[Rfam]
A member of the RNA family "mir-31 microRNA precursor family" from Laodelphax striatellus, 84 nucleotides long.
A search with the family's covariance model found it, with a score of 52 bits.
The organism belongs to Laodelphax, within Eukaryota.
Gene Ontology terms of the family: gene silencing by miRNA and RISC complex.
Clan: mir-31 microRNA precursor family.
Rfam 15.1 lists 1,181 matches to the family in 783 species.
A reference for the family is Ma et al. (2023), "Structure of pre-miR-31 reveals an active role in Dicer processing", bioRxiv [Preprint].
RNA sequence: AAUAAAUGAAAAGACAAGAUGUUGUCAAACCACUGAUUUAUAAUAAAUCAGUGGUUUGACAACAUCUUGUCUUUUCAUUUAUUA
Numbered sequence: 001a002a003u004a005a006a007u008g009a010a011a012a013g014a015c016a017a018g019a020u021g022u023u024g025u026c027a028a029a030c031c032a033c034u035g036a037u038u039u040a041u042a043a044u045a046a047a048u049c050a051g052u053g054g055u056u057u058g059a060c061a062a063c064a065u066c067u068u069g070u071c072u073u074u075u076c077a078u079u080u081a082u083u084a
Base pairs, nucleotide, nucleotide: 005079006078007077008076009075010074011073012072013071014070015069016068017067018066019065020064021063023061024060025059026058027057028056029055030054031053032052033051